[Rfam]
RNA sequence: AGGUCAUUGCAAAGAGGGUUGGUGUGGCUCUGAAGCCAGCAGCUCUUAAGGCUGCAACUGAGAUUGGGUUUCUCCAGAGGAUGCCACAGUCACUCGAUGGUGUGGCUUUCCUGAGGAGACACAAGA
Numbered sequence: 001a002g003g004u005c006a007u008u009g010c011a012a013a014g015a016g017g018g019u020u021g022g023u024g025u026g027g028c029u030c031u032g033a034a035g036c037c038a039g040c041a042g043c044u045c046u047u048a049a050g051g052c053u054g055c056a057a058c059u060g061a062g063a064u065u066g067g068g069u070u071u072c073u074c075c076a077g078a079g080g081a082u083g084c085c086a087c088a089g090u091c092a093c094u095c096g097a098u099g100g101u102g103u104g105g106c107u108u109u110c111c112u113g114a115g116g117a118g119a120c121a122c123a124a125g126a
Base pairs, nucleotide, nucleotide: 002059003058004057007054014047015046016045017044018043019042020041021040023039026037027036071119072118073117074116075115078112079111080110081109089103091102092101093100094099